Background
A member of the RNA family "FMN riboswitch aptamer (RFN element)" from Erysipelotrichaceae bacterium MTC7, 128 nucleotides long. The match comes from Rfam's covariance-model search (93 bits).
RNA sequence: UGUAAUCUUCAGGGCAAGGUGCGUUAGUUUACUAACAAUUCCUGACCGGCGGUAAACCCCGCGAGCCGAAAGGCUGAACUGGUGCAAUUCCAGUGGCGACAGUAUAGUCUGGAUGAAAGAAGAGCAUU
Numbered sequence: 001u002g003u004a005a006u007c008u009u010c011a012g013g014g015c016a017a018g019g020u021g022c023g024u025u026a027g028u029u030u031a032c033u034a035a036c037a038a039u040u041c042c043u044g045a046c047c048g049g050c051g052g053u054a055a056a057c058c059c060c061g062c063g064a065g066c067c068g069a070a071a072g073g074c075u076g077a078a079c080u081g082g083u084g085c086a087a088u089u090c091c092a093g094u095g096g097c098g099a100c101a102g103u104a105u106a107g108u109c110u111g112g113a114u115g116a117a118a119g120a121a122g123a124g125c126a127u128u
Stems, first nucleotide, its partner, number of pairs: 003126001006123005017043003045108002047098002049062004057096002065074003078094005100111003
From the family's description: The RFN element is a highly conserved domain that is found frequently in the 5'-untranslated regions of prokaryotic mRNAs that encode for flavin mononucleotide (FMN) biosynthesis and transport proteins.